[Rfam]
RNA sequence: CUGUAUCAAGGGCAAACCCGGCCGAAAGGCGGGGGCGCAAAAUCACCAGUCUAAGGGAAUGAGUUUCUAUGACAGUGGGAUUGCCGGA
Dot-bracket structure: ...........((...((((.((....))))))...))..((((.((((((....((((....))))...)))..)))))))......
Shown here is an 88-nucleotide RNA from Novimethylophilus kurashikiensis, a member of the family "c-di-GMP-I riboswitch aptamer".
Taxonomically the source falls in Novimethylophilus (Bacteria, Pseudomonadati, Pseudomonadota, Methylophilaceae).
On this family, see Weinberg et al., Nucleic Acids Res 2007: "Identification of 22 candidate structured RNAs in bacteria using the CMfinder comparative genomics pipeline".
The base pairs follow the family's consensus structure, which is taken from published work.